[Rfam]
RNA sequence: GUGGUUUAAUACCAAUUGCCGAAGACAGUAGGUGCCUACGGGGAUUUAUCCUUGACAAGGGCGUAAACUUAGUACCUACCGAGGAAUGAAGUUAUAAGUAUGACUGACAAUACCUCUCUGUUUCGGCAGAGAGGUUUUUUAUACUAUUGU
Numbered sequence: 001g002u003g004g005u006u007u008a009a010u011a012c013c014a015a016u017u018g019c020c021g022a023a024g025a026c027a028g029u030a031g032g033u034g035c036c037u038a039c040g041g042g043g044a045u046u047u048a049u050c051c052u053u054g055a056c057a058a059g060g061g062c063g064u065a066a067a068c069u070u071a072g073u074a075c076c077u078a079c080c081g082a083g084g085a086a087u088g089a090a091g092u093u094a095u096a097a098g099u100a101u102g103a104c105u106g107a108c109a110a111u112a113c114c115u116c117u118c119u120g121u122u123u124c125g126g127c128a129g130a131g132a133g134g135u136u137u138u139u140u141a142u143a144c145u146a147u148u149g150u
Base pairs, nucleotide, nucleotide: 028079029078030077031076032075033074035043036042112135113134114133115132116131117130118129119128120127121126